[Rfam]
Rfam assigns this 59-nucleotide RNA sequence from Salvator merianae to the family "Trypanosomatid snoRNA TB10Cs2H1". On this family, see Liang et al., RNA 2005: "A genome-wide analysis of C/D and H/ACA-like small nucleolar RNAs in Trypanosoma brucei reveals a trypanosome-specific pattern of rRNA modification".

RNA sequence: AGGAGGUGCUGACUGGGUAAGUGGCACACCUCCUACCCUAUGUUGCACCCCCUAGUUCC
Numbered sequence: 001a002g003g004a005g006g007u008g009c010u011g012a013c014u015g016g017g018u019a020a021g022u023g024g025c026a027c028a029c030c031u032c033c034u035a036c037c038c039u040a041u042g043u044u045g046c047a048c049c050c051c052c053u054a055g056u057u058c059c
Stems, first nucleotide, its partner, number of pairs: 002052002005049005015038003